[Rfam]
This 153-nucleotide sequence from Actinacidiphila alni belongs to the Rfam family "c-di-AMP riboswitch aptamer (ydaO/yuaA leader)". Gene Ontology terms of the family: cyclic-di-AMP binding and regulation of gene expression. Taxonomically the source falls in Actinacidiphila (Bacteria, Bacillati, Actinomycetes, Kitasatosporales).
RNA sequence: GAACCACCUCCGCUCAAUCCGGCCCCGGCCGGAGCCGGGGACCCACCGAGCACGUGGGGUGAAUCGGGACAGGCGCCGCGAGGCGUCGGAACCGUAGGGCGACCUUCAGCCCGAACCCGUCAGCUAACCCGGUCGGCGGUAUUCGGAAGGAGU
Numbered sequence: 001g002a003a004c005c006a007c008c009u010c011c012g013c014u015c016a017a018u019c020c021g022g023c024c025c026c027g028g029c030c031g032g033a034g035c036c037g038g039g040g041a042c043c044c045a046c047c048g049a050g051c052a053c054g055u056g057g058g059g060u061g062a063a064u065c066g067g068g069a070c071a072g073g074c075g076c077c078g079c080g081a082g083g084c085g086u087c088g089g090a091a092c093c094g095u096a097g098g099g100c101g102a103c104c105u106u107c108a109g110c111c112c113g114a115a116c117c118c119g120u121c122a123g124c125u126a127a128c129c130c131g132g133u134c135g136g137c138g139g140u141a142u143u144c145g146g147a148a149g150g151a152g153u
Stems, first nucleotide, its partner, number of pairs: 011138004018033005034133006044056002057118003065094003097112004

On this family, see Barrick et al., Proc Natl Acad Sci U S A 2004: "New RNA motifs suggest an expanded scope for riboswitches in bacterial genetic control". A search with the family's covariance model found it, with a score of 74 bits.